About this RNA
Rfam assigns this 100-nucleotide sequence from Jejuibacter calystegiae to the family "Gammaprotebacteria rimP leader". A search with the family's covariance model found it, with a score of 93 bits. Rfam classes the family as a cis-regulatory leader. Pairs were carried over by alignment from the consensus structure, which is taken from published work. Gene Ontology term of the family: regulation of gene expression. On this family, see Naville and Gautheret, Genome Biol 2010: "Premature terminator analysis sheds light on a hidden world of bacterial transcriptional attenuation".
[Rfam]
RNA sequence: UGAGGUAUGACGGGUGACAGGGUUCAGUUAUAUAAAGCCCCGUUAAUCGGGGUUUUUUGUUAUCUGACGAGAGAAUAACUGGGCUUUUGGCCCUUUUUUU
Numbered sequence: 001u002g003a004g005g006u007a008u009g010a011c012g013g014g015u016g017a018c019a020g021g022g023u024u025c026a027g028u029u030a031u032a033u034a035a036a037g038c039c040c041c042g043u044u045a046a047u048c049g050g051g052g053u054u055u056u057u058u059g060u061u062a063u064c065u066g067a068c069g070a071g072a073g074a075a076u077a078a079c080u081g082g083g084c085u086u087u088u089g090g091c092c093c094u095u096u097u098u099u100u
Stems, first nucleotide, its partner, number of pairs: 034056009081093004